[Rfam]
RNA sequence: GUCUGCAUGACUCCCCGAAUGCCAACUAGGAAGUGCAUCAACCCUUUUGACGAACCAUCAUAGAUGGCAUUCAGGGAGCCAGGCAGAC
Numbered sequence: 001g002u003c004u005g006c007a008u009g010a011c012u013c014c015c016c017g018a019a020u021g022c023c024a025a026c027u028a029g030g031a032a033g034u035g036c037a038u039c040a041a042c043c044c045u046u047u048u049g050a051c052g053a054a055c056c057a058u059c060a061u062a063g064a065u066g067g068c069a070u071u072c073a074g075g076g077a078g079c080c081a082g083g084c085a086g087a088c
Stems, first nucleotide, its partner, number of pairs: 001088006008081002011078004017072008027062002
This 88-nucleotide RNA from Phoenix dactylifera belongs to the Rfam family "mir-160 microRNA precursor family". The match comes from Rfam's covariance-model search (52 bits). The family has 7 seed sequences and 1,502 matches in Rfam 15.1. NCBI's taxonomy places the organism under Eukaryota, Embryophyta, Tracheophyta, commelinids, Phoenix. A reference for the family is Rhoades et al. (2002), "Prediction of plant microRNA targets", Cell. The family's consensus secondary structure was predicted with PFOLD.